Annotation: The family of this 78-nucleotide RNA from Megaselia scalaris is "mir-219 microRNA precursor family". NCBI's taxonomy places the organism under Eukaryota, Hexapoda, Metopininae, Megaseliini, Megaselia. The family's consensus secondary structure was predicted with RNAalifold. The match comes from Rfam's covariance-model search (73 bits).
[Rfam]
RNA sequence: UUUAGCUCUGAUUGUCCAAACGCAAUUCUUGCUCAUUUUUUAAUAAUUCAAGAGUUGUUUCUGGACAUCGUGGCUCGA
Numbered sequence: 001u002u003u004a005g006c007u008c009u010g011a012u013u014g015u016c017c018a019a020a021c022g023c024a025a026u027u028c029u030u031g032c033u034c035a036u037u038u039u040u041u042a043a044u045a046a047u048u049c050a051a052g053a054g055u056u057g058u059u060u061c062u063g064g065a066c067a068u069c070g071u072g073g074c075u076c077g078a
Base pairs, nucleotide, nucleotide: 002077004075005074006073007072009070010069011068012067014066015065016064017063018062022058023057024056025055026054027053028052029051030050031049